[Rfam]
RNA sequence: GAAGCAGGCCGCCUUAUCGUUUCUGCAUUAGCAGAAGAGGAAAGUCCGGGCACCAUAGGGAAGCAUAGCGGCUAACGGCCGUCGCUCUUUUUAGCUUCGGUUAAAGAGGGUAGGACAAGUGCAGCAGAAAGUAUGUACAGGUAAUGCUGUAGUGAAACCAGGUAAACUCUAUGCGGUGAAAUGUCACGUAAACCUACGUUUAAGGGUUCCCGCCCGUUGUAGGAGGGUAGGCAGAUUGAGUGUAUUGGUAACAAUACAUCUAGAUAAAUGAUAAGGACUUGAAUUUAUUUGAGUACAGAACCCGGCUUAUAGGCCUGCUUUUUUU
Numbered sequence: 001g002a003a004g005c006a007g008g009c010c011g012c013c014u015u016a017u018c019g020u021u022u023c024u025g026c027a028u029u030a031g032c033a034g035a036a037g038a039g040g041a042a043a044g045u046c047c048g049g050g051c052a053c054c055a056u057a058g059g060g061a062a063g064c065a066u067a068g069c070g071g072c073u074a075a076c077g078g079c080c081g082u083c084g085c086u087c088u089u090u091u092u093a094g095c096u097u098c099g100g101u102u103a104a105a106g107a108g109g110g111u112a113g114g115a116c117a118a119g120u121g122c123a124g125c126a127g128a129a130a131g132u133a134u135g136u137a138c139a140g141g142u143a144a145u146g147c148u149g150u151a152g153u154g155a156a157a158c159c160a161g162g163u164a165a166a167c168u169c170u171a172u173g174c175g176g177u178g179a180a181a182u183g184u185c186a187c188g189u190a191a192a193c194c195u196a197c198g199u200u201u202a203a204g205g206g207u208u209c210c211c212g213c214c215c216g217u218u219g220u221a222g223g224a225g226g227g228u229a230g231g232c233a234g235a236u237u238g239a240g241u242g243u244a245u246u247g248g249u250a251a252c253a254a255u256a257c258a259u260c261u262a263g264a265u266a267a268a269u270g271a272u273a274a275g276g277a278c279u280u281g282a283a284u285u286u287a288u289u290u291g292a293g294u295a296c297a298g299a300a301c302c303c304g305g306c307u308u309a310u311a312g313g314c315c316u317g318c319u320u321u322u323u324u325u
Stems, first nucleotide, its partner, number of pairs: 001321010011310001012276007020037007042308003046305005051178004059211002063174005068082005083113001084111012114169002119167002121163002136151005182233004193223005203217001205215002240259008